[Rfam]
RNA sequence: CUCUGGAUUCGCAAAGAGUCCAGGGCGGAAAGAG
Numbered sequence: 001c002u003c004u005g006g007a008u009u010c011g012c013a014a015a016g017a018g019u020c021c022a023g024g025g026c027g028g029a030a031a032g033a034g
Base pairs, nucleotide, nucleotide: 001025002024003023004022005021006020007019008018009017010016
The record is a 34-nucleotide RNA sequence from Gordoniibacillus kamchatkensis, which matches "L31-Firmicutes ribosomal protein leader" in Rfam.
NCBI's taxonomy places the organism under Bacteria, Bacillota, Caryophanales, Paenibacillaceae, Gordoniibacillus.
Its Rfam clan is "Ribosomal Protein L31 Leader clan".
Rfam's curators put it in the seed alignment.
It is annotated as a cis-regulatory leader.